[Rfam]
RNA: bablM sRNA
RNA sequence: CAAUCAAUUUAUCUCAAUCUCAGAUUGAGGUAAAUAGCAUAAUUAAAUUAUUUAAUAGAAAAAGG
Numbered sequence: 001c002a003a004u005c006a007a008u009u010u011a012u013c014u015c016a017a018u019c020u021c022a023g024a025u026u027g028a029g030g031u032a033a034a035u036a037g038c039a040u041a042a043u044u045a046a047a048u049u050a051u052u053u054a055a056u057a058g059a060a061a062a063a064g065g
Stems, first nucleotide, its partner, number of pairs: 014028005031045003035041001